[Rfam]
Nucleotides: 054
Stems, first nucleotide, its partner, number of pairs: 001054003006051003010047002013045002015042006022035005
Number, partner (000 for none) and nucleotide at each position: 001054a002053a003052g004000g005000u006051g007050g008049c009000a010047u011046a012000u013045g014044c015042c016041a017040c018039u019038g020037c021000c022035a023034u024033g025032g026031a027000c028000u029000g030000g031026u032025u033024c034023a035022u036000g037020g038019c039018a040017g041016u042015g043000u044014g045013c046011u047010a048000c049008g050007c051006c052003u053002u054001u